The record is a 101-nucleotide RNA sequence from Bacillus thuringiensis, which matches "Glycine riboswitch aptamer" in Rfam.

Nucleotides: 101
Stems, first nucleotide, its partner, number of pairs: 006096001009093003019030004032076003035072002039070003045063006
Number, partner (000 for none) and nucleotide at each position: 001000a002000u003000g004000a005000a006096c007000c008000a009093u010092u011091c012000a013000g014000g015000a016000g017000a018000a019030g020029g021028u022027c023000u024000a025000u026000u027022g028021a029020u030019c031000u032076a033075c034074c035072g036071a037000c038000g039070g040069g041068g042000c043000a044000a045063a046062a047061a048060g049059u050058u051000g052000u053000u054000a055000a056000c057000c058050g059049a060048c061047u062046u063045u064000g065000a066000a067000a068041c069040u070039c071036u072035c073000a074034g075033g076032u077000c078000u079000u080000g081000u082000u083000u084000a085000c086000a087000a088000g089000u090000a091011g092010a093009a094000c095000u096006g097000c098000a099000u100000g101000g